Shown here is an 86-nucleotide RNA sequence from Xenopus laevis, a member of the family "Small nucleolar RNA SNORD103/SNORD85".
Pairs were carried over by alignment from the consensus structure.
It scores 53 bits against the family's covariance model.
A reference for the family is Huttenhofer et al. (2001), "RNomics: an experimental approach that identifies 201 candidates for novel, small, non-messenger RNAs in mouse", EMBO J.
Rfam classes the family as a C/D-box small nucleolar RNA.
The family has 41 seed sequences and 1,349 matches in Rfam 15.1.

RNA sequence: UCUGGCUGUGAUGACACACUUGCCCUCACUGCGAACUUUGUUUCUGUGAUGAGGACAAUAUAGUACUCAAAUCAAACUGAGCCUGA
Numbered sequence: 001u002c003u004g005g006c007u008g009u010g011a012u013g014a015c016a017c018a019c020u021u022g023c024c025c026u027c028a029c030u031g032c033g034a035a036c037u038u039u040g041u042u043u044c045u046g047u048g049a050u051g052a053g054g055a056c057a058a059u060a061u062a063g064u065a066c067u068c069a070a071a072u073c074a075a076a077c078u079g080a081g082c083c084u085g086a
Base pairs, nucleotide, nucleotide: 001086002085004083005082006081